Overview: This 82-nucleotide sequence from Liparis tanakae belongs to the Rfam family "Small nucleolar RNA SNORD11B".
RNA sequence: ACCAAGCAGUGAUGAUGACGACCAUGUCGCUUUCCUGAUUAAAAACUGAUGCUUUUAAGUCACUACCUCAUCUGAGCUUUGG
Numbered sequence: 001a002c003c004a005a006g007c008a009g010u011g012a013u014g015a016u017g018a019c020g021a022c023c024a025u026g027u028c029g030c031u032u033u034c035c036u037g038a039u040u041a042a043a044a045a046c047u048g049a050u051g052c053u054u055u056u057a058a059g060u061c062a063c064u065a066c067c068u069c070a071u072c073u074g075a076g077c078u079u080u081g082g
Stems, first nucleotide, its partner, number of pairs: 002081001004079004

A search with the family's covariance model found it, with a score of 62 bits.
Taxonomically the source falls in Liparis (Eukaryota, Opisthokonta, Teleostei, Percomorphaceae).
The family's RNA type in Rfam is C/D-box small nucleolar RNA.